[Rfam]
RNA sequence: GCCCGUAUAGCUCAGUGGUAGAGCGCGUCACUCGUACCAUUACGUAAUGAUGAGGUCGGCGGUUCGAUCCCGCCUGGGGGCA
Dot-bracket structure: ((((.((..((((.......)))).(((((.................))))).....(((((.......))))))).)))).